[Rfam]
Nucleotides: 121
Stems, first nucleotide, its partner, number of pairs: 001079006007072001009070001010045004015040002022032004048067002056063002082120003087117007099108003
Number, partner (000 for none) and nucleotide at each position: 001079c002078c003077g004076a005075g006074a007072u008000a009070g010045g011044g012043g013042u014000a015040c016039a017000a018000a019000u020000u021000c022032u023031g024030c025029c026000a027000a028000u029025g030024g031023c032022g033000a034000u035000u036000c037000c038000c039016u040015g041000g042013a043012c044011c045010u046000u047000a048067g049066c050000g051000a052000u053000g054000a055000u056063g057062g058000g059000c060000a061000a062057c063056c064000u065000a066049g067048c068000g069000a070009c071000g072007a073000c074006u075005c076004u077003c078002g079001g080000c081000g082120u083119c084118c085000u086000u087117u088116g089115g090114g091113a092112g093111a094000g095000a096000g097000u098000g099108c100107u101106a102000g103000a104000c105000g106101u107100a108099g109000u110000g111093u112092c113091u114090c115089c116088c117087a118084g119083g120082a121000c